[Rfam]
RNA sequence: CCAGCGUGAAAGACAAGGUAGUGAGAUGAGUAGUUCAAAUCAACAUCUCACUACCCAUGUCUUUCAGCUUUCC
Numbered sequence: 001c002c003a004g005c006g007u008g009a010a011a012g013a014c015a016a017g018g019u020a021g022u023g024a025g026a027u028g029a030g031u032a033g034u035u036c037a038a039a040u041c042a043a044c045a046u047c048u049c050a051c052u053a054c055c056c057a058u059g060u061c062u063u064u065c066a067g068c069u070u071u072c073c
Base pairs, nucleotide, nucleotide: 008065009064010063011062012061013060014059015058017055018054020052021051022050023049024048025047026046027045028044
Dot-bracket structure: .......((((((((.((.(((((((((...............))))))))).))..))))))))........
This 73-nucleotide RNA from Orchesella cincta belongs to the Rfam family "mir-71 microRNA precursor family". The organism belongs to Orchesella, within Eukaryota. Rfam links the family to the GO terms RISC complex and miRNA-mediated post-transcriptional gene silencing. For this family Rfam cites "Direct sequencing and expression analysis of a large number of miRNAs in Aedes aegypti and a multi-species survey of novel mosquito miRNAs" (Li et al., BMC Genomics, 2009).